This 75-nucleotide RNA from Peterkaempfera bronchialis belongs to the Rfam family "ASpks TB sRNA".

[Rfam]
RNA sequence: CUUGGCCGACCCCAGCCACAACGGCUGCCCGGCCUCGCGCCCCUGACCGUAUGUCGCCAGCAGCGCCUGCGCCUC
Numbered sequence: 001c002u003u004g005g006c007c008g009a010c011c012c013c014a015g016c017c018a019c020a021a022c023g024g025c026u027g028c029c030c031g032g033c034c035u036c037g038c039g040c041c042c043c044u045g046a047c048c049g050u051a052u053g054u055c056g057c058c059a060g061c062a063g064c065g066c067c068u069g070c071g072c073c074u075c
Stems, first nucleotide, its partner, number of pairs: 014026004032070002038065002043060003047056001049054001
Record summary
The family has 77 seed sequences and 9,052 matches in Rfam 15.1. It scores 78 bits against the family's covariance model. The base pairs follow the family's consensus structure, which is taken from published work.